The family of this 69-nucleotide RNA from Scytalopus superciliaris is "tRNA".

RNA sequence: ACUCUAGUAGUUUAUCAAAAACACUGGUCUUGUAAACCAGAGAAUGAAAGAUCACCCUUUCCUAGAGUA
Numbered sequence: 001a002c003u004c005u006a007g008u009a010g011u012u013u014a015u016c017a018a019a020a021a022c023a024c025u026g027g028u029c030u031u032g033u034a035a036a037c038c039a040g041a042g043a044a045u046g047a048a049a050g051a052u053c054a055c056c057c058u059u060u061c062c063u064a065g066a067g068u069a
Base pairs, nucleotide, nucleotide: 001068002067003066004065005064006063007062010022011021012020013019024040025039026038027037028036046061047060048059049058050057
A search with the family's covariance model found it, with a score of 52 bits.